[Rfam]
RNA: MIR812 microRNA precursor family
RNA sequence: AAAAAGUAAAAUCUGAUUUUUCGUGUCCAACUUUAUCUGUCCUUCUUAUAUAAAAUUUUUUUAUAAUUCGCAUUUUCAUUGUUGUUAGAUGAUAAAACAUGAUUAAUAUUUUAUGCGUGACUUGUCUUUUUAAUUUUUUUUAUAAUUUUUUCAAAUAAGACGGACGGUCAAAUGUUGGACACGGAAAUCAGGGUUUGUCCUUUUU
Numbered sequence: 001a002a003a004a005a006g007u008a009a010a011a012u013c014u015g016a017u018u019u020u021u022c023g024u025g026u027c028c029a030a031c032u033u034u035a036u037c038u039g040u041c042c043u044u045c046u047u048a049u050a051u052a053a054a055a056u057u058u059u060u061u062u063a064u065a066a067u068u069c070g071c072a073u074u075u076u077c078a079u080u081g082u083u084g085u086u087a088g089a090u091g092a093u094a095a096a097a098c099a100u101g102a103u104u105a106a107u108a109u110u111u112u113a114u115g116c117g118u119g120a121c122u123u124g125u126c127u128u129u130u131u132a133a134u135u136u137u138u139u140u141u142a143u144a145a146u147u148u149u150u151u152c153a154a155a156u157a158a159g160a161c162g163g164a165c166g167g168u169c170a171a172a173u174g175u176u177g178g179a180c181a182c183g184g185a186a187a188u189c190a191g192g193g194u195u196u197g198u199c200c201u202u203u204u205u
Base pairs, nucleotide, nucleotide: 026179027178028177029176030175031174032172033171034170037167038166039165040164041163042162044160045159046158047157048156049155